[Rfam]
RNA sequence: CAUCAGAGGCUUUUUUUUUAUUUUUAAAAGCAUUUUUUCUACAACCUCUUUGGCCGAAAAAAUGCUUUUAAAAGUAAAAAAAAAAGCCUCUGAUGAUCGCGCGGCUCAGCUGGGAUCAUCAGAGGCUUUUUUUUU
Numbered sequence: 001c002a003u004c005a006g007a008g009g010c011u012u013u014u015u016u017u018u019u020a021u022u023u024u025u026a027a028a029a030g031c032a033u034u035u036u037u038u039c040u041a042c043a044a045c046c047u048c049u050u051u052g053g054c055c056g057a058a059a060a061a062a063u064g065c066u067u068u069u070a071a072a073a074g075u076a077a078a079a080a081a082a083a084a085a086g087c088c089u090c091u092g093a094u095g096a097u098c099g100c101g102c103g104g105c106u107c108a109g110c111u112g113g114g115a116u117c118a119u120c121a122g123a124g125g126c127u128u129u130u131u132u133u134u135u
Stems, first nucleotide, its partner, number of pairs: 016079004021074014036059004083129016
Shown here is a 135-nucleotide sequence from Pantherophis guttatus, a member of the family "Phenylalanine leader peptide". The family has 71 seed sequences and 379 matches in Rfam 15.1. The literature on the family includes a 1978 paper in Proc Natl Acad Sci U S A by Zurawski et al., "Nucleotide sequence of the leader region of the phenylalanine operon of Escherichia coli". By type it is a cis-regulatory leader. Its family is annotated with cellular amino acid metabolic process in the Gene Ontology.